Rfam assigns this 80-nucleotide sequence from Rubrimonas cliftonensis to the family "Selenocysteine transfer RNA". The source organism's lineage runs through Bacteria, Pseudomonadati, Pseudomonadota, Alphaproteobacteria and Rubrimonas. Pairs were carried over by alignment from the consensus structure, which is taken from published work.

RNA sequence: GGGAGGGAUGCUCUAAGGUAGAGCAGCGGACUGUAAAUCCGUCGAGGAGACUCACAGUGGGUUCGAUUCCCACCCCUCCC
Numbered sequence: 001g002g003g004a005g006g007g008a009u010g011c012u013c014u015a016a017g018g019u020a021g022a023g024c025a026g027c028g029g030a031c032u033g034u035a036a037a038u039c040c041g042u043c044g045a046g047g048a049g050a051c052u053c054a055c056a057g058u059g060g061g062u063u064c065g066a067u068u069c070c071c072a073c074c075c076c077u078c079c080c
Stems, first nucleotide, its partner, number of pairs: 001080006007073001010024006026042005047053002058072004